[Rfam]
This 117-nucleotide sequence from Molossus molossus belongs to the Rfam family "U5 spliceosomal RNA".
The match comes from Rfam's covariance-model search (90 bits).
The family's consensus secondary structure is taken from published work.
By type it is a spliceosomal small nuclear RNA.
The source organism's lineage runs through Eukaryota, Metazoa, Bilateria, Mammalia and Molossus.
RNA sequence: UAUUUCAGGGUUUUUCUUCAAAACGUACAAAUCUUUCGCCUUUUACUAAAGAUUUCCGUGGAGAGAAACCAAUCUGAAUCAUUUCUCAAUUUUUUGAGUCCUUGUUUUAACAAGGCA
Number, nucleotide and partner (000 for none) at each position: 001u000002a000003u000004u078005u077006c076007a000008g000009g000010g069011u068012u067013u066014u065015u064016c063017u062018u061019c060020a059021a000022a000023a000024c000025g000026u000027a000028c000029a055030a054031a053032u052033c051034u050035u049036u048037c000038g000039c000040c000041u000042u000043u000044u000045a000046c000047u000048a036049a035050a034051g033052a032053u031054u030055u029056c000057c000058g000059u020060g019061g018062a017063g016064a015065g014066a013067a012068a011069c010070c000071a000072a000073u000074c000075u000076g006077a005078a004079u000080c000081a000082u000083u000084u000085c000086u000087c000088a000089a000090u000091u000092u000093u000094u000095u000096g000097a000098g000099u000100c115101c114102u113103u112104g111105u000106u000107u000108u000109a000110a000111c104112a103113a102114g101115g100116c000117a000